[Rfam]
RNA sequence: UAACUUGUGUUAACUAUGUAGCACCUUCUAGUAGAAAUGCUAGUCGAAAACUCCGUUAAACGGGGAAAGCCUUAAUUAGAGGUAACCUACCGUGCUAAAUCUUAUCUUAGAACAAGUUGUUUUAUUCAGGGCGUAUCUUAUCAUUUUGCAUAUGUAAAAUUAAAAAGAGACAGCAUGAAAUGAUAAGAGACUUUCUGAAAGACUAAGAUAAGUAAAUGCCUAACGACUAUCCCAUAUGGGAGUAGGGCGCAAGCAAUUGGCGCUCGAAAAGCGGAGCACCUAAUCAGGUUAUGCUGUAGGUGAUGAUAUAGUCUGUCCUGUAUGGUGACAUACAG
Numbered sequence: 001u002a003a004c005u006u007g008u009g010u011u012a013a014c015u016a017u018g019u020a021g022c023a024c025c026u027u028c029u030a031g032u033a034g035a036a037a038u039g040c041u042a043g044u045c046g047a048a049a050a051c052u053c054c055g056u057u058a059a060a061c062g063g064g065g066a067a068a069g070c071c072u073u074a075a076u077u078a079g080a081g082g083u084a085a086c087c088u089a090c091c092g093u094g095c096u097a098a099a100u101c102u103u104a105u106c107u108u109a110g111a112a113c114a115a116g117u118u119g120u121u122u123u124a125u126u127c128a129g130g131g132c133g134u135a136u137c138u139u140a141u142c143a144u145u146u147u148g149c150a151u152a153u154g155u156a157a158a159a160u161u162a163a164a165a166a167g168a169g170a171c172a173g174c175a176u177g178a179a180a181u182g183a184u185a186a187g188a189g190a191c192u193u194u195c196u197g198a199a200a201g202a203c204u205a206a207g208a209u210a211a212g213u214a215a216a217u218g219c220c221u222a223a224c225g226a227c228u229a230u231c232c233c234a235u236a237u238g239g240g241a242g243u244a245g246g247g248c249g250c251a252a253g254c255a256a257u258u259g260g261c262g263c264u265c266g267a268a269a270a271g272c273g274g275a276g277c278a279c280c281u282a283a284u285c286a287g288g289u290u291a292u293g294c295u296g297u298a299g300g301u302g303a304u305g306a307u308a309u310a311g312u313c314u315g316u317c318c319u320g321u322a323u324g325g326u327g328a329c330a331u332a333c334a335g
Stems, first nucleotide, its partner, number of pairs: 007024006030041003051276004056271002060093004064087002070082004094219002101212002106207005223314001225313005279300004287292001320333005
Source information: The family of this 335-nucleotide RNA is "Group I catalytic intron". About the family: Group I catalytic introns are large self-splicing ribozymes. They catalyse their own excision from mRNA, tRNA and rRNA precursors in a wide range of organisms. Its family is annotated with Group I intron splicing in the Gene Ontology.